[Rfam]
Notes: Small nucleolar RNA snoR109: a 97-nucleotide RNA from Juglans regia. A reference for the family is Marker et al. (2002), "Experimental RNomics: identification of 140 candidates for small non-messenger RNAs in the plant Arabidopsis thaliana", Curr Biol. Rfam links the family to the GO terms RNA processing and nucleolus. The match comes from Rfam's covariance-model search (49 bits). By type it is an H/ACA-box small nucleolar RNA. The organism belongs to Juglans, within Eukaryota. Rfam 15.1 lists 680 matches to the family in 220 species.
Nucleotides: 097
Stems, first nucleotide, its partner, number of pairs: 022091008034078003038074002041071001043068003
Number, partner (000 for none) and nucleotide at each position: 001000u002000a003000u004000u005000c006000a007000u008000u009000u010000c011000a012000a013000a014000a015000g016000g017000u018000c019000u020000u021000a022091g023090a024089g025088a026087a027086g028085u029084u030000a031000a032000c033000u034078g035077g036076c037000c038074g039073g040000u041071u042000u043068u044067u045066g046000u047000g048000a049000g050000a051000u052000c053000u054000u055000u056000c057000g058000a059000u060000c061000u062000c063000c064000g065000u066045c067044a068043a069000c070000u071041a072000u073039u074038c075000u076036g077035c078034u079000u080000a081000c082000c083000a084029a085028a086027c087026u088025u089024c090023u091022c092000a093000u094000a095000u096000u097000c